[Rfam]
Nucleotides: 046
Base pairs, nucleotide, nucleotide: 001020002019003018004017005016006015007014008013033045034044035043036042037041
Number, partner (000 for none) and nucleotide at each position: 001020c002019c003018u004017g005016g006015g007014a008013c009000u010000u011000g012000c013008g014007u015006c016005c017004c018003a019002g020001g021000c022000u023000a024000u025000c026000a027000c028000u029000u030000a031000c032000c033045g034044u035043c036042a037041c038000u039000u040000c041037g042036u043035g044034a045033c046000u